[Rfam]
RNA: c-di-GMP-I riboswitch aptamer
RNA sequence: UUUAUAUAGUGGCAAACUUAUCGAAAGAUAAGGACGCAAAGCUAUGGGUCUAAAGGAAAAGCCUAUGAUCGCCAGGUUGCCGUU
Numbered sequence: 001u002u003u004a005u006a007u008a009g010u011g012g013c014a015a016a017c018u019u020a021u022c023g024a025a026a027g028a029u030a031a032g033g034a035c036g037c038a039a040a041g042c043u044a045u046g047g048g049u050c051u052a053a054a055g056g057a058a059a060a061g062c063c064u065a066u067g068a069u070c071g072c073c074a075g076g077u078u079g080c081c082g083u084u
Stems, first nucleotide, its partner, number of pairs: 012037002017032006040078004045074003048069003055063002